[Rfam]
Nucleotides: 095
Stems, first nucleotide, its partner, number of pairs: 001095006008088007016080009027069003
Number, partner (000 for none) and nucleotide at each position: 001095g002094c003093g004092c005091a006090c007000c008088a009087c010086u011085c012084c013083c014082a015000c016080g017079g018078u019077g020076u021075g022074c023073c024072a025000u026000u027069a028068g029067u030000a031000a032000a033000a034000a035000u036000u037000u038000a039000g040000u041000a042000a043000u044000u045000u046000u047000u048000u049000u050000a051000a052000a053000a054000u055000u056000c057000u058000u059000u060000c061000a062000a063000a064000a065000c066000u067029a068028c069027u070000a071000a072024u073023g074022g075021c076020g077019c078018a079017c080016c081000g082014u083013g084012g085011g086010a087009g088008u089000g090006g091005u092004g093003c094002g095001c

Record summary:
Shown here is a 95-nucleotide RNA sequence from Triticum urartu, a member of the family "mir-160 microRNA precursor family". The base pairs follow the family's consensus structure, which was predicted with PFOLD. Gene Ontology terms of the family: miRNA-mediated post-transcriptional gene silencing and RISC complex. The organism belongs to Triticum, within Eukaryota.